A member of the RNA family "RAGATH-18 RNA", 72 nucleotides long. Actinobacteria, Firmicutes, Fusobacteria, Thermotogae (1 example).
RNA sequence: CCUCUGGACUGUUAUACCAAACGUAAGUAGCCAAUUAGCAGCACGGCAAAAACGGACAGGAUGAAAGAGGAA
Numbered sequence: 001c002c003u004c005u006g007g008a009c010u011g012u013u014a015u016a017c018c019a020a021a022c023g024u025a026a027g028u029a030g031c032c033a034a035u036u037a038g039c040a041g042c043a044c045g046g047c048a049a050a051a052a053c054g055g056a057c058a059g060g061a062u063g064a065a066a067g068a069g070g071a072a
Stems, first nucleotide, its partner, number of pairs: 001070005009059005022054003030047003